Shown here is a 79-nucleotide RNA from Hordeum vulgare, a member of the family "Small nucleolar RNA Z102/R77". The family's consensus secondary structure was predicted with PFOLD. A reference for the family is Barneche et al. (2001), "Identification of 66 box C/D snoRNAs in Arabidopsis thaliana: extensive gene duplications generated multiple isoforms predicting new ribosomal RNA 2'-O-methylation sites", J Mol Biol. Gene Ontology terms of the family: RNA processing and nucleolus. It is annotated as a C/D-box small nucleolar RNA.
RNA sequence: GGGUGAAAUGAGGAUUAAAUAAUUAUUGAAGGACGGUAUGAUGUCCGUUGAAUCAUGUAUUAGCUCUAUCUGAUCAUUC
Numbered sequence: 001g002g003g004u005g006a007a008a009u010g011a012g013g014a015u016u017a018a019a020u021a022a023u024u025a026u027u028g029a030a031g032g033a034c035g036g037u038a039u040g041a042u043g044u045c046c047g048u049u050g051a052a053u054c055a056u057g058u059a060u061u062a063g064c065u066c067u068a069u070c071u072g073a074u075c076a077u078u079c
Stems, first nucleotide, its partner, number of pairs: 002078004028048001031046004